Shown here is an 85-nucleotide RNA sequence from Shewanella frigidimarina, a member of the family "RpsF leader". On this family, see Fu et al., RNA 2014: "Bacterial RNA motif in the 5' UTR of rpsF interacts with an S6:S18 complex". The base pairs follow the family's consensus structure. By type it is a cis-regulatory leader. It scores 38 bits against the family's covariance model.
RNA sequence: UCAGUCACUUUAAUUCGUUCCUUGCCUCCACAUUGGUCUGACUGAGCCAGAAAAGAGGCUACUUAACCGUAAGGAGCAAUAAAUG
Numbered sequence: 001u002c003a004g005u006c007a008c009u010u011u012a013a014u015u016c017g018u019u020c021c022u023u024g025c026c027u028c029c030a031c032a033u034u035g036g037u038c039u040g041a042c043u044g045a046g047c048c049a050g051a052a053a054a055g056a057g058g059c060u061a062c063u064u065a066a067c068c069g070u071a072a073g074g075a076g077c078a079a080u081a082a083a084u085g
Stems, first nucleotide, its partner, number of pairs: 017077007024059005035048003

Conserved and widely distributed to many bacterial species RNA structure. Rfam links the family to the GO terms protein binding and negative regulation of translation.